[Rfam]
RNA sequence: AAUAUUAGUGGCGAUGGAGUUCGCCUUUAAAUGCGCAAAGCUGAUGACUCCUACAAAAUG
Numbered sequence: 001a002a003u004a005u006u007a008g009u010g011g012c013g014a015u016g017g018a019g020u021u022c023g024c025c026u027u028u029a030a031a032u033g034c035g036c037a038a039a040g041c042u043g044a045u046g047a048c049u050c051c052u053a054c055a056a057a058a059u060g
Base pairs, nucleotide, nucleotide: 010025011024012023013022016051017050018049019048020047021046033041034040

The family of this 60-nucleotide RNA sequence from Clostridium thermopalmarium is "Fluoride riboswitch aptamer (crcB RNA motif)".
The source organism's lineage runs through Bacteria, Eubacteriales, Clostridiaceae, Clostridium and Clostridium thermopalmarium.
Rfam links the family to the GO terms positive regulation of gene expression and response to fluoride.